This 98-nucleotide sequence from Halothece sp. PCC 7418 belongs to the Rfam family "Bacterial small signal recognition particle RNA". The family is grouped with related families in Rfam's "SRP clan". Rfam classes the family as a non-coding RNA gene. Rfam describes the family as follows. The signal recognition particle (SRP) is a universally conserved ribonucleoprotein involved in the co-translational targeting of proteins to membranes.
RNA sequence: GAUCCGGGAUAGCGCGAUUGUGACGCCCGAACCUUGUCAGGACCGGAAGGUAGCAGCAAUAAGGGAUGCUCACAAUAGGCGCUAGACUCCGGGUCUUU
Numbered sequence: 001g002a003u004c005c006g007g008g009a010u011a012g013c014g015c016g017a018u019u020g021u022g023a024c025g026c027c028c029g030a031a032c033c034u035u036g037u038c039a040g041g042a043c044c045g046g047a048a049g050g051u052a053g054c055a056g057c058a059a060u061a062a063g064g065g066a067u068g069c070u071c072a073c074a075a076u077a078g079g080c081g082c083u084a085g086a087c088u089c090c091g092g093g094u095c096u097u098u
Base pairs, nucleotide, nucleotide: 004092005091006090007089008088010084011083012082013081014080017076018075019074020073021072022071026065027064028063034059035058036057037056042051043050044049